Listeria sRNA rli28: a 182-nucleotide RNA sequence from Ornithinibacillus halotolerans.
A search with the family's covariance model found it, with a score of 49 bits.
Pairs were carried over by alignment from the consensus structure, which was predicted with RNAalifold.

RNA sequence: UCGAUAGUGAUAUAAUAUAGACAAGUAAUAAUCGUGAUUUCCUAAGGGGGGUCGGCGCAUUCUCAUCGUUGUAGUGUCUUGCGAUAUGCUAUGACGAAAGGGGGUGUUGCCUUGUCUGUUUAUGAAACAUUGGUGUUAAUGAUUGCCUUUGCAACACUCGUUGUGACGAUCUUAGACCAAAA
Dot-bracket structure: .................................((..(.............((((((...((....................))..))))..))...................(((.((.(.....).)).)))................)..))....(((..(......)..))).....